[Rfam]
RNA: msiK RNA
RNA sequence: CGCGGGUGUCUCUUCACAACGGAUCGUCCGGCACGUACCUGCCGGUGGAGGGGAAACAA
Numbered sequence: 001c002g003c004g005g006g007u008g009u010c011u012c013u014u015c016a017c018a019a020c021g022g023a024u025c026g027u028c029c030g031g032c033a034c035g036u037a038c039c040u041g042c043c044g045g046u047g048g049a050g051g052g053g054a055a056a057c058a059a
Stems, first nucleotide, its partner, number of pairs: 010052007028045006
Dot-bracket structure: .........(((((((...........((((((......))))))))))))).......